Shown here is a 73-nucleotide RNA sequence from Salvator merianae, a member of the family "bZIP non canonical Hac1/Xbp1 intron". A reference for the family is Hooks and Griffiths-Jones (2011), "Conserved RNA structures in the non-canonical Hac1/Xbp1 intron", RNA Biol. Taxonomically the source falls in Salvator (Eukaryota, Deuterostomia, Gnathostomata, Teiidae). By type it is a small RNA. bZIP intron RNA is a non-canonical intron that was first reported in HAC1 gene in yeast and XBP1 gene in Metazoa.
RNA sequence: GCGACCGGGUCCGCUGAGUCCGCAGCACUUAGACUACGUGUUCCUCUGCAGCAGGGACAGGCCCAGCAGUCGC
Numbered sequence: 001g002c003g004a005c006c007g008g009g010u011c012c013g014c015u016g017a018g019u020c021c022g023c024a025g026c027a028c029u030u031a032g033a034c035u036a037c038g039u040g041u042u043c044c045u046c047u048g049c050a051g052c053a054g055g056g057a058c059a060g061g062c063c064c065a066g067c068a069g070u071c072g073c
Stems, first nucleotide, its partner, number of pairs: 001073005007064005014032006041057005